[Rfam]
RNA sequence: AAAAAGGGCUUCUGCCGUGCGUGGCACGGGGGGGCCCCGCGCCGCCCCCGCGGAAUCGACAUCAAGAGAUUUCGGAAGCACAAUUUUUGUGAGGGGGGGCCGCCGGUAACCGCUCGUUCCGGCGCCCCG
Numbered sequence: 001a002a003a004a005a006g007g008g009c010u011u012c013u014g015c016c017g018u019g020c021g022u023g024g025c026a027c028g029g030g031g032g033g034g035c036c037c038c039g040c041g042c043c044g045c046c047c048c049c050g051c052g053g054a055a056u057c058g059a060c061a062u063c064a065a066g067a068g069a070u071u072u073c074g075g076a077a078g079c080a081c082a083a084u085u086u087u088u089g090u091g092a093g094g095g096g097g098g099g100c101c102g103c104c105g106g107u108a109a110c111c112g113c114u115c116g117u118u119c120c121g122g123c124g125c126c127c128c129g
Base pairs, nucleotide, nucleotide: 008079009078010077011076012075013026014025015024016023017022027050028049029048030047031046032045035041051074052073053072054071055070056069057068097127098126099125100124102123103122104121105120106119108118109117110116

A member of the RNA family "U11 spliceosomal RNA" from Piprites chloris, 129 nucleotides long. The family has 72 seed sequences and 2,595 matches in Rfam 15.1. The literature on the family includes a 1988 paper in Proc Natl Acad Sci U S A by Montzka and Steitz, "Additional low-abundance human small nuclear ribonucleoproteins: U11, U12, etc". The organism belongs to Piprites, within Eukaryota. The family is grouped with related families in Rfam's "U1 clan".